This 136-nucleotide sequence from Ancylobacter defluvii belongs to the Rfam family "speF leader". The family's consensus secondary structure was predicted with RNAalifold. Rfam classes the family as a cis-regulatory leader. Lineage of the source: Bacteria > Pseudomonadati > Pseudomonadota > Xanthobacteraceae > Ancylobacter. Rfam's curators write: This family is a putative regulatory RNA structure that is found upstream of the speF gene encoding ornithine decarboxylase in Agrobacterium tumefaciens and other alpha-proteobacteria.
RNA sequence: UGUCGGCCCUCCAAAGGUCGGGAAACUGAAGAGGCACUACUUCUUGCCGGGCGUGCGGUCGGGUUUCCCGUACCAAGCGAAGGCAUCGAUCGAACGGUCGCGCUCUCCACAUGCGCGCCGAACGCAUCGCUGCCAC
Numbered sequence: 001u002g003u004c005g006g007c008c009c010u011c012c013a014a015a016g017g018u019c020g021g022g023a024a025a026c027u028g029a030a031g032a033g034g035c036a037c038u039a040c041u042u043c044u045u046g047c048c049g050g051g052c053g054u055g056c057g058g059u060c061g062g063g064u065u066u067c068c069c070g071u072a073c074c075a076a077g078c079g080a081a082g083g084c085a086u087c088g089a090u091c092g093a094a095c096g097g098u099c100g101c102g103c104u105c106u107c108c109a110c111a112u113g114c115g116c117g118c119c120g121a122a123c124g125c126a127u128c129g130c131u132g133c134c135a136c
Stems, first nucleotide, its partner, number of pairs: 001023001003021006033048004055130003082091002099117005